Shown here is a 180-nucleotide RNA from Amazona guildingii, a member of the family "TUC338". The family's RNA type in Rfam is cis-regulatory element. The family's consensus secondary structure was predicted with WAR.
[Rfam]
Nucleotides: 180
Stems, first nucleotide, its partner, number of pairs: 002167003007160002012154010024141003028138001030137006038109003048101001051099001053097001055095001063086004112130001114128001116126003
Number, partner (000 for none) and nucleotide at each position: 001000u002167u003166g004165a005000c006000a007160g008159c009000c010000c011000u012154a013153g014152a015151g016150a017149c018148u019147g020146a021145a022000c023000c024141c025140u026139u027000c028138u029000a030137u031136u032135u033134a034133u035132c036000c037000a038109c039108a040107g041000a042000a043000c044000a045000g046000g047000u048101a049000c050000a051099g052000c053097a054000c055095a056000g057000a058000c059000a060000g061000c062000a063086g064085c065084a066083c067000u068000g069000c070000g071000a072000g073000c074000u075000u076000c077000c078000c079000c080000a081000c082000a083066g084065u085064g086063u087000c088000u089000c090000a091000u092000c093000a094000a095055u096000a097053u098000a099051u100000c101048u102000c103000a104000a105000c106000c107040c108039u109038g110000u111000u112130c113000u114128g115000g116126a117125g118124g119000a120000a121000c122000c123000a124118c125117c126116u127000g128114u129000u130112g131000a132035g133034g134033u135032g136031a137030g138028a139026a140025g141024g142000u143000a144000g145021u146020u147019c148018a149017g150016u151015c152014u153013c154012u155000u156000c157000a158000u159008g160007u161000a162000c163000u164000g165004u166003c167002a168000a169000u170000c171000c172000u173000u174000g175000g176000c177000g178000u179000g180000a